[Rfam]
RNA sequence: UUUGUUAAGAAGAAACAGCCGUUUCUCACCUUACAGCAUUGCUAGUGGGGUUAUGAAAGAAUCAUUCUAGUAUUACUAGUGUUGUAUUCAAAGGACGGCUAAUGCCGUCCUUUUUUAUAUGC
Numbered sequence: 001u002u003u004g005u006u007a008a009g010a011a012g013a014a015a016c017a018g019c020c021g022u023u024u025c026u027c028a029c030c031u032u033a034c035a036g037c038a039u040u041g042c043u044a045g046u047g048g049g050g051u052u053a054u055g056a057a058a059g060a061a062u063c064a065u066u067c068u069a070g071u072a073u074u075a076c077u078a079g080u081g082u083u084g085u086a087u088u089c090a091a092a093g094g095a096c097g098g099c100u101a102a103u104g105c106c107g108u109c110c111u112u113u114u115u116u117a118u119a120u121g122c
Stems, first nucleotide, its partner, number of pairs: 011026006028051003033046002036042002094109006
Dot-bracket structure: ..........((((((....)))))).(((..((.((...))..))..)))..........................................((((((....)))))).............
The record is a 122-nucleotide sequence from Clostridium thailandense, which matches "Ribosomal protein L20 leader" in Rfam. It scores 63 bits against the family's covariance model. NCBI's taxonomy places the organism under Bacteria, Clostridia, Eubacteriales, Clostridiaceae, Clostridium. Rfam describes the family as follows. This family is a putative r-protein leader autoregulatory structure found in B. subtilis and other low-GC Gram-positive bacteria. It is located in the 5' untranslated regions of mRNAs encoding initiation factor 3 followed by ribosomal proteins L35 and L20 (infC-rpmI-rplT).